Annotation
permuted transfer-messenger RNA: a 360-nucleotide RNA sequence from Rickettsiales bacterium UBA2461. Its family is annotated with RNA catabolic process in the Gene Ontology. Pairs were carried over by alignment from the consensus structure, which is taken from published work. Lineage of the source: Bacteria > Pseudomonadati > Pseudomonadota > Alphaproteobacteria > Rickettsiales. For this family Rfam cites "Phylogenetic analysis of tmRNA secondary structure" (Williams and Bartel, RNA, 1996).
[Rfam]
RNA sequence: GGUGAUAAAUGCAUUUCGCAAUAAACGACAUGGACCUGGGGGCAGAACCCAGCACCUCCAGCCUUCGCUCUUGCGAGCUUCGGCUGGCAGGCCAGCCUUAAAGGCAGGACUAUCGGUUGGAGAUUGCUAGAGCGAAGGCUGCGCGCCUUAGACUUGGUGAAGGCGGGCAUCAGCAGCUGACUCGCUGAAUAGCUAGGGGGUGAAACAGCUUUCGACAUGCGAUAAAGGAAAUGAUUUUACUCGGUUGAGAUACUGCCGGCUGUGGACGCAAGUCUUUGGCAUCGUUCAAAACAACUAAACGCAAAUGACAAUUUUGCUAAUGAUAACUUCGAAUUUGCUCCAGUGGCUUUAGCUGCUUAG
Numbered sequence: 001g002g003u004g005a006u007a008a009a010u011g012c013a014u015u016u017c018g019c020a021a022u023a024a025a026c027g028a029c030a031u032g033g034a035c036c037u038g039g040g041g042g043c044a045g046a047a048c049c050c051a052g053c054a055c056c057u058c059c060a061g062c063c064u065u066c067g068c069u070c071u072u073g074c075g076a077g078c079u080u081c082g083g084c085u086g087g088c089a090g091g092c093c094a095g096c097c098u099u100a101a102a103g104g105c106a107g108g109a110c111u112a113u114c115g116g117u118u119g120g121a122g123a124u125u126g127c128u129a130g131a132g133c134g135a136a137g138g139c140u141g142c143g144c145g146c147c148u149u150a151g152a153c154u155u156g157g158u159g160a161a162g163g164c165g166g167g168c169a170u171c172a173g174c175a176g177c178u179g180a181c182u183c184g185c186u187g188a189a190u191a192g193c194u195a196g197g198g199g200g201u202g203a204a205a206c207a208g209c210u211u212u213c214g215a216c217a218u219g220c221g222a223u224a225a226a227g228g229a230a231a232u233g234a235u236u237u238u239a240c241u242c243g244g245u246u247g248a249g250a251u252a253c254u255g256c257c258g259g260c261u262g263u264g265g266a267c268g269c270a271a272g273u274c275u276u277u278g279g280c281a282u283c284g285u286u287c288a289a290a291a292c293a294a295c296u297a298a299a300c301g302c303a304a305a306u307g308a309c310a311a312u313u314u315u316g317c318u319a320a321u322g323a324u325a326a327c328u329u330c331g332a333a334u335u336u337g338c339u340c341c342a343g344u345g346g347c348u349u350u351a352g353c354u355g356c357u358u359a360g
Base pairs, nucleotide, nucleotide: 001241002240003239004238005237014231015230016229017228026221027220030218031217032216036052037051038050039049040048053202054201055200056199057198058197059196242258243257244256245255